[Rfam]
RNA sequence: AACUUUUACGAGGUAUCAGCACUCUUCUUUCAUUAGUGGGGAAGGAAGAAUGAAAAAUAAAAAAUAGCAGACUUUUAAAGUUUAAAUAGACAGGUCUGAGUGCCUGAACGUGCUCUUCCAUUUUACUUUAACCCUCCAAAGAAGUAUUCUGAUCCAGUUUCACUGCUGAUCAGCAAGGGUAAGUUGAAAGC
Numbered sequence: 001a002a003c004u005u006u007u008a009c010g011a012g013g014u015a016u017c018a019g020c021a022c023u024c025u026u027c028u029u030u031c032a033u034u035a036g037u038g039g040g041g042a043a044g045g046a047a048g049a050a051u052g053a054a055a056a057a058u059a060a061a062a063a064a065u066a067g068c069a070g071a072c073u074u075u076u077a078a079a080g081u082u083u084a085a086a087u088a089g090a091c092a093g094g095u096c097u098g099a100g101u102g103c104c105u106g107a108a109c110g111u112g113c114u115c116u117u118c119c120a121u122u123u124u125a126c127u128u129u130a131a132c133c134c135u136c137c138a139a140a141g142a143a144g145u146a147u148u149c150u151g152a153u154c155c156a157g158u159u160u161c162a163c164u165g166c167u168g169a170u171c172a173g174c175a176a177g178g179g180u181a182a183g184u185u186g187a188a189a190g191c
Base pairs, nucleotide, nucleotide: 003019004018007015008014009013029143030142031141033139034138036136038134039133040132041129042128043127044126049122050121051120052119055117056116069097070096071095072094073093074092098113100111101110102109155183158179159178160177163173164172165171
Connexin-43 internal ribosome entry site (IRES): a 191-nucleotide RNA sequence from Crotophaga sulcirostris.
It scores 108 bits against the family's covariance model.
About the family: This family represents the connexin-43 internal ribosome entry site (IRES) which allows cap independent translation during conditions such as heat shock and stress.
Pairs were carried over by alignment from the consensus structure, which is taken from published work.
A reference for the family is Schiavi et al. (1999), "Connexin43 mRNA contains a functional internal ribosome entry site", FEBS Lett.
Rfam 15.1 lists 657 matches to the family in 497 species.